[Rfam]
RNA sequence: UGCUGUGAUGUUGUAAUUUGCGUCUUACUCCUCACUUAGCGACAGUUGCCUGCUGUCAUAAUGCUGGUGAAGGAUGGCUGAUGUAAACUUCAUUUCUGAGCA
Numbered sequence: 001u002g003c004u005g006u007g008a009u010g011u012u013g014u015a016a017u018u019u020g021c022g023u024c025u026u027a028c029u030c031c032u033c034a035c036u037u038a039g040c041g042a043c044a045g046u047u048g049c050c051u052g053c054u055g056u057c058a059u060a061a062u063g064c065u066g067g068u069g070a071a072g073g074a075u076g077g078c079u080g081a082u083g084u085a086a087a088c089u090u091c092a093u094u095u096c097u098g099a100g101c102a
Stems, first nucleotide, its partner, number of pairs: 001102003021083004030073002032070003039064002041057005

Small nucleolar RNA SNORD16: a 102-nucleotide RNA from Aquarana catesbeiana. The base pairs follow the family's consensus structure, which was predicted with PFOLD. Its Rfam clan is "SNORD16 clan". The family has 5 seed sequences and 1,321 matches in Rfam 15.1. For this family Rfam cites "RNomics: an experimental approach that identifies 201 candidates for novel, small, non-messenger RNAs in mouse" (Huttenhofer et al., EMBO J, 2001). A search with the family's covariance model found it, with a score of 96 bits.